[Rfam]
RNA sequence: UCAACGUGGAUAUUCUGUGGUUCACUCACAGGCUUUGUCCAAGUGGCACACGGGAGCGUAGCGCUUGCGCAUUGACGUAUAUUCCCUUUCCACAACGUUGAAGAGCAAACUUGCCCUGGUAUUACUGUGGGCAGCAUCCUGUAUAUUCCUACAACUUUCCAGAGCUUAUGCAGCUUUUACUGGGGAGAAAAACCAUGCAGGGUACAUCU
Numbered sequence: 001u002c003a004a005c006g007u008g009g010a011u012a013u014u015c016u017g018u019g020g021u022u023c024a025c026u027c028a029c030a031g032g033c034u035u036u037g038u039c040c041a042a043g044u045g046g047c048a049c050a051c052g053g054g055a056g057c058g059u060a061g062c063g064c065u066u067g068c069g070c071a072u073u074g075a076c077g078u079a080u081a082u083u084c085c086c087u088u089u090c091c092a093c094a095a096c097g098u099u100g101a102a103g104a105g106c107a108a109a110c111u112u113g114c115c116c117u118g119g120u121a122u123u124a125c126u127g128u129g130g131g132c133a134g135c136a137u138c139c140u141g142u143a144u145a146u147u148c149c150u151a152c153a154a155c156u157u158u159c160c161a162g163a164g165c166u167u168a169u170g171c172a173g174c175u176u177u178u179a180c181u182g183g184g185g186a187g188a189a190a191a192a193c194c195a196u197g198c199a200g201g202g203u204a205c206a207u208c209u
Stems, first nucleotide, its partner, number of pairs: 001101007008040005014032003018028002020025001043093004052086004056080001058078002061073001138201007155187006164174003

Rfam assigns this 209-nucleotide RNA sequence from Hymenochirus boettgeri to the family "Small nucleolar RNA SNORA73 family". The family's RNA type in Rfam is H/ACA-box small nucleolar RNA. Taxonomically the source falls in Hymenochirus (Eukaryota, Bilateria, Deuterostomia, Anura). Clan: snR30-U17 clan. Its family is annotated with RNA processing and nucleolus in the Gene Ontology. From the family's description: U17 (SNORA73A and SNORA73B) also known as E1 belongs to the H/ACA class of small nucleolar RNAs (snoRNAs). The family has 66 seed sequences and 2,326 matches in Rfam 15.1.